[Rfam]
This 77-nucleotide RNA from Crocodylus porosus belongs to the Rfam family "Mammalian CPEB3 ribozyme". The organism belongs to Crocodylus, within Eukaryota. The family's consensus secondary structure is taken from published work. The mammalian CPEB3 ribozyme is a self cleaving RNA located in the second intron of the CPEB3 gene which belongs to a family of genes regulating messenger RNA polyadenylation. This ribozyme is highly conserved and found only in mammals. The CPEB3 ribozyme is structurally and biochemically related to the human hepatitis delta virus (HDV) ribozyme and the HDV ribozyme is proposed to have arisen from the human transcriptome. For this family Rfam cites "Autocatalytic RNA cleavage in the human beta-globin pre-mRNA promotes transcription termination" (Teixeira et al., Nature, 2004).

RNA sequence: GGUUGCAAGUUUGAGGCCAUAGAAAAAGCACUUAUGGUGCAGCCCUGUCAGAUUCCAACAAAUCUGCAAGUUCUCCU
Numbered sequence: 001g002g003u004u005g006c007a008a009g010u011u012u013g014a015g016g017c018c019a020u021a022g023a024a025a026a027a028g029c030a031c032u033u034a035u036g037g038u039g040c041a042g043c044c045c046u047g048u049c050a051g052a053u054u055c056c057a058a059c060a061a062a063u064c065u066g067c068a069a070g071u072u073c074u075c076c077u
Stems, first nucleotide, its partner, number of pairs: 013045001015044003021077002024074001026072002028040003049066006